Rfam assigns this 127-nucleotide sequence to the family "DUF3800-III RNA".

RNA sequence: AGAGUAGUCGAGUAAGUCCUGGAAUCUCUAGUCCAGCAAUAGCGGUCUUACUCCGUGCAAAGUGAACCCAUCGGGGUUUACCCUCGAAAGAGGCGGUGAGAAUCGGAGCCCAGGGAUUGACUAUUCU
Dot-bracket structure: (((((((...((.....(((((...(((....((.((....))))....................................((((....))))............))).)))))..))..)))))))